[Rfam]
RNA sequence: UGGGCAGCAAUGAUUAUAAAGUAAUUCCUCGUUCUGAAUGCUGGUUGCCACAGCUUGACAGACCCUUUUACACCCAUAGAAUAUGAGCUUCC
Numbered sequence: 001u002g003g004g005c006a007g008c009a010a011u012g013a014u015u016a017u018a019a020a021g022u023a024a025u026u027c028c029u030c031g032u033u034c035u036g037a038a039u040g041c042u043g044g045u046u047g048c049c050a051c052a053g054c055u056u057g058a059c060a061g062a063c064c065c066u067u068u069u070a071c072a073c074c075c076a077u078a079g080a081a082u083a084u085g086a087g088c089u090u091c092c
Base pairs, nucleotide, nucleotide: 003092004091006089007088

The family of this 92-nucleotide RNA from Handroanthus impetiginosus is "Small nucleolar RNA snoR8a". The family's consensus secondary structure was predicted with WAR. A reference for the family is Brown et al. (2001), "Multiple snoRNA gene clusters from Arabidopsis", RNA. The organism belongs to Handroanthus, within Eukaryota. By type it is a C/D-box small nucleolar RNA.